A member of the RNA family "mir-205 microRNA precursor family" from Oncorhynchus kisutch, 75 nucleotides long. The match comes from Rfam's covariance-model search (78 bits). Lineage of the source: Eukaryota > Bilateria > Teleostomi > Protacanthopterygii > Oncorhynchus.
RNA sequence: GCAUUCUAUCCUUCAUUCCACCGGAGUCUGUGUCAUGAACCAAUCAGAUUUCAGUGGUAUGAAGAGUAAGAAACA
Numbered sequence: 001g002c003a004u005u006c007u008a009u010c011c012u013u014c015a016u017u018c019c020a021c022c023g024g025a026g027u028c029u030g031u032g033u034c035a036u037g038a039a040c041c042a043a044u045c046a047g048a049u050u051u052c053a054g055u056g057g058u059a060u061g062a063a064g065a066g067u068a069a070g071a072a073a074c075a
Stems, first nucleotide, its partner, number of pairs: 011064006019056003023052004028047003